[Rfam]
Record summary
Rfam assigns this 256-nucleotide part of an RNA from Propioniferax innocua to the family "Bacterial large subunit ribosomal RNA". The match comes from Rfam's covariance-model search (2812 bits).
RNA sequence: GGAGUCUUGAGGAGAGCUGUCCUUAGUACGAGAGGACCGGGACGGACGAACCUCUGGUGUGCCAGUUGUUCCGCCAGGAGCACGGCUGGUUGGCCACGUUCGGAAAUGAUAACCGCUGAAAGCAUCUAAGCGGGAAGCAUUCUCCAAGAUUAGGGCUCCCACCAUAUGGUUAAGGACCCCGGUAGCCCACCGGGUUGAUAGGUCGGAUGUGGAAGUGCAGUAAUGUAUGGAGCUGACCGAUACUAAUAGUCCGAGG
Number, nucleotide and partner (000 for none) at each position: 001g159002g158003a157004g156005u155006c154007u153008u152009g000010a000011g145012g144013a143014g142015a000016g000017c045018u044019g043020u042021c041022c040023u039024u000025a000026g000027u000028a000029c000030g000031a000032g000033a000034g000035g000036a000037c000038c000039g023040g022041g021042a020043c019044g018045g017046a000047c102048g101049a100050a099051c098052c000053u000054c000055u096056g095057g094058u000059g000060u000061g000062c089063c088064a087065g086066u085067u082068g081069u080070u079071c078072c077073g000074c000075c000076a000077g072078g071079a070080g069081c068082a067083c000084g000085g066086c065087u064088g063089g062090u000091u000092g000093g000094c057095c056096a055097c000098g051099u050100u049101c048102g047103g000104a000105a000106a140107u139108g138109a000110u000111a000112a000113c133114c132115g131116c130117u129118g000119a000120a000121a000122g000123c000124a000125u000126c000127u000128a000129a117130g116131c115132g114133g113134g000135a000136a000137g000138c108139a107140u106141u000142c014143u013144c012145c011146a000147a000148g000149a000150u000151u000152a008153g007154g006155g005156c004157u003158c002159c001160c000161a000162c169163c168164a000165u000166a000167u000168g163169g162170u000171u254172a000173a000174g252175g251176a250177c249178c194179c193180c192181g191182g190183u000184a000185g000186c000187c000188c000189a000190c182191c181192g180193g179194g178195u000196u000197g000198a000199u245200a244201g243202g241203u240204c239205g238206g237207a000208u000209g233210u000211g000212g000213a000214a000215g228216u227217g226218c225219a224220g000221u000222a000223a000224u219225g218226u217227a216228u215229g000230g000231a000232g000233c209234u000235g000236a000237c206238c205239g204240a203241u202242a000243c201244u200245a199246a000247u000248a000249g177250u176251c175252c174253g000254a171255g000256g000
The base pairs follow the family's consensus structure, which is taken from published work. NCBI's taxonomy places the organism under Bacteria, Bacillati, Actinomycetes, Propionibacteriaceae, Propioniferax.